[Rfam]
RNA sequence: GUGGCGGUGUAGUCCCACGUGGCGUCGGCGUCCAGGAGGGCGUUCUCGCCGAACUGCUCGCCGUCGGCGAGUACGGCGACGGCGACGGCGUCGCCGUACUUGCCGAGGGUGGUCUGGCUGAUCCGGCCGUGGGCGAUCAGGUGGAUCUGGUCGGCGGCGGUACCGCGCUCGACGAGCACCUCACCGGCCCGGAAGUCGCGCUGGACGCACCGGCCGGCGAGCGCGGUCAGCACCUCUUCGUCGUCGAAGCCGCGCAGCAGGGCCAUUUCGCCGAGCUCGCGGGGGAUCACCCGGACGUCGCCGCCGUCCUGGAUGAACUCGAUGCGUCCGUCGCCGACGGUGUAACUCAGCCGGCGGUUCACCCGGUAGGUGCCGCCCUUGGUCUCCACCCAGGGGAGCGUCCGCAGCAGCCACCGGGAGGUGAUCUCCUGCAUCUGCGGGGCGGACUUGGUCGUGCUGGCAAGGUUGCGGGCAGCUGCCGUGCUCAGGCUGGACUGCUGCGGCGGCUCCAG
Dot-bracket structure: .....((((.((.((...(.(...((((..((.....(((......((.(((..(.((.(((((((.(......(.(((..(((.(......).)))..))))....).)).....(((..((...(.((....(.(((((((.((....((...((((((....((.....))........))).))).))..))))).)))).)..)).)...))..)))))))).)).)..(((..((.(((....(((((.(((.(.(......).)...))))))))..))).))..)))..))).))....)))....))..))))..).).((((......))))..........(((((..((((.....)))))))))...)).)).))))(((((((.(((.(.(.(.......)).)..))).))))))).....((.(..((.((((.((.......)).))).).))..).))((.(((.(.(((.........))).))))....)).
RNA: Saccharopolyspora sRNA 350